Small nucleolar RNA SNORD53/SNORD92: an 84-nucleotide RNA sequence from Crypturellus undulatus. The family has 37 seed sequences and 2,250 matches in Rfam 15.1. A reference for the family is Kiss-Laszlo et al. (1996), "Site-specific ribose methylation of preribosomal RNA: a novel function for small nucleolar RNAs", Cell.
RNA sequence: GUGCAGUGAUGAUCUCCUAAAUUGUGGUUUCAACUUACUGAUUGUUGAGUGAAGACAUGAAUUUCCUUGGCUGUGUCUGAGCAU
Numbered sequence: 001g002u003g004c005a006g007u008g009a010u011g012a013u014c015u016c017c018u019a020a021a022u023u024g025u026g027g028u029u030u031c032a033a034c035u036u037a038c039u040g041a042u043u044g045u046u047g048a049g050u051g052a053a054g055a056c057a058u059g060a061a062u063u064u065c066c067u068u069g070g071c072u073g074u075g076u077c078u079g080a081g082c083a084u
Stems, first nucleotide, its partner, number of pairs: 001084004